[Rfam]
RNA sequence: CACAGGCAAGCGCAGGAUUACUGCUAGGUCGUCGGAUAGACGGCAGCUCCUUUGUGAGUGGGUUCCUGGCACCUGGGGCCUGUGCAUUU
Numbered sequence: 001c002a003c004a005g006g007c008a009a010g011c012g013c014a015g016g017a018u019u020a021c022u023g024c025u026a027g028g029u030c031g032u033c034g035g036a037u038a039g040a041c042g043g044c045a046g047c048u049c050c051u052u053u054g055u056g057a058g059u060g061g062g063u064u065c066c067u068g069g070c071a072c073c074u075g076g077g078g079c080c081u082g083u084g085c086a087u088u089u
Stems, first nucleotide, its partner, number of pairs: 001084007011076001013075004022071006028044006047058003
RNA: DUF3800-VII RNA